[Rfam]
RNA sequence: CAGACAUUGGAGGAUGAAAAUAUGGAGUGAUCCAUGGUUUCAGUUGACAAUAUAUAAUGGUUUACUGCUGUCACUGUCCA
Numbered sequence: 001c002a003g004a005c006a007u008u009g010g011a012g013g014a015u016g017a018a019a020a021u022a023u024g025g026a027g028u029g030a031u032c033c034a035u036g037g038u039u040u041c042a043g044u045u046g047a048c049a050a051u052a053u054a055u056a057a058u059g060g061u062u063u064a065c066u067g068c069u070g071u072c073a074c075u076g077u078c079c080a
Stems, first nucleotide, its partner, number of pairs: 003078004008073001009069002012033004017028001035056002037048003
The family of this 80-nucleotide RNA from Oryctolagus cuniculus is "Small nucleolar RNA SNORD71". snoRNA HBII-239 belongs to the family of C/D snoRNAs.It is the human orthologue of the mouse MBII-239 described and is predicted to guide 2'O-ribose methylation of 5.8S rRNA on residue U14. Pairs were carried over by alignment from the consensus structure, which was predicted with RNAalifold.